[Rfam]
RNA: Small nucleolar RNA R21
Organism: Dorcoceras hygrometricum
RNA sequence: AAUCCCUAUGAAGAACGUCAUGAUAAAUCAAAAGUAGUGGCCUGAUUUCUUUGAUGAUAUUAUUAUUCCGAGGGAUU
Numbered sequence: 001a002a003u004c005c006c007u008a009u010g011a012a013g014a015a016c017g018u019c020a021u022g023a024u025a026a027a028u029c030a031a032a033a034g035u036a037g038u039g040g041c042c043u044g045a046u047u048u049c050u051u052u053g054a055u056g057a058u059a060u061u062a063u064u065a066u067u068c069c070g071a072g073g074g075a076u077u
Stems, first nucleotide, its partner, number of pairs: 001077006